[Rfam]
RNA: Small nucleolar RNA SNORA33
Organism: Carlito syrichta
RNA sequence: AAGCCAACCAGUAGGUCUACUUACCUGAAUAUGUUUUUGUAGAAACUGUUAAAAAAAACUGGCAAUAGUAAAGUCAUGUUACAAGCUUUAAGGACAUUGAAGUUGUUGAGGUCCCUGAAGAUGGCUAUAACA
Dot-bracket structure: ..((((.........(((((..................)))))................)))).........((((........(((((((.(((......))).))))))).........)))).......